[Rfam]
A member of the RNA family "TPP riboswitch aptamer (THI element)" from Corynebacterium provencense, 110 nucleotides long. The match comes from Rfam's covariance-model search (67 bits). The source organism's lineage runs through Bacteria, Actinomycetota, Actinomycetes, Corynebacteriaceae and Corynebacterium. A reference for the family is Warner et al. (2014), "Validating fragment-based drug discovery for biological RNAs: lead fragments bind and remodel the TPP riboswitch specifically", Chem Biol.

Nucleotides: 110
Base pairs, nucleotide, nucleotide: 008096009095010094011061012060013059014058016055017032018031019030020029021028039054040053041052042051043050066091067090068089069088072085073084074083075082
Number, partner (000 for none) and nucleotide at each position: 001000g002000u003000g004000u005000g006000a007000c008096c009095a010094c011061a012060c013059g014058g015000g016055u017032g018031c019030c020029c021028c022000g023000g024000g025000a026000a027000a028021g029020g030019g031018g032017c033000u034000g035000a036000g037000a038000c039054c040053g041052g042051a043050c044000u045000g046000a047000c048000g049000u050043g051042u052041c053040c054039g055016g056000g057000a058014c059013c060012g061011u062000a063000g064000a065000a066091c067090c068089u069088g070000a071000u072085c073084c074083g075082g076000u077000u078000g079000a080000c081000a082075c083074c084073g085072g086000c087000g088069u089068a090067g091066g092000a093000a094010g095009u096008g097000a098000g099000g100000a101000a102000c103000u104000c105000a106000g107000c108000c109000a110000u